[Rfam]
RNA: Small nucleolar RNA SNORA29
Organism: Myotis myotis
RNA sequence: UUUCCGGUUUGACUACCUCAUUUUCUCCUAAUAAUAGAUUUUAGUGGUUAUGCUUAUGGGGUAGAUUGAAAGUGCCAUGAUCUCAGAAGGACUUAUUUCUAUCCCCCUCCUAUAUGAAAUGGCUGAGUAGAAAAUA
Numbered sequence: 001u002u003u004c005c006g007g008u009u010u011g012a013c014u015a016c017c018u019c020a021u022u023u024u025c026u027c028c029u030a031a032u033a034a035u036a037g038a039u040u041u042u043a044g045u046g047g048u049u050a051u052g053c054u055u056a057u058g059g060g061g062u063a064g065a066u067u068g069a070a071a072g073u074g075c076c077a078u079g080a081u082c083u084c085a086g087a088a089g090g091a092c093u094u095a096u097u098u099c100u101a102u103c104c105c106c107c108u109c110c111u112a113u114a115u116g117a118a119a120u121g122g123c124u125g126a127g128u129a130g131a132a133a134a135u136a
Stems, first nucleotide, its partner, number of pairs: 004060002007057001016047002019044001074123004088111004